[Rfam]
RNA sequence: GGUAUCAGAUGAUGAAAACUCGAAACAAUCUUAGGACACCUUCUGACACAGCAUCGUGCUGUGAAUGAGAAGGCAAUUCUUUUCUGAUGAUGCU
Dot-bracket structure: (((((((....................................((...)).....................................)))))))
RNA: Small nucleolar RNA snoR31/Z110/Z27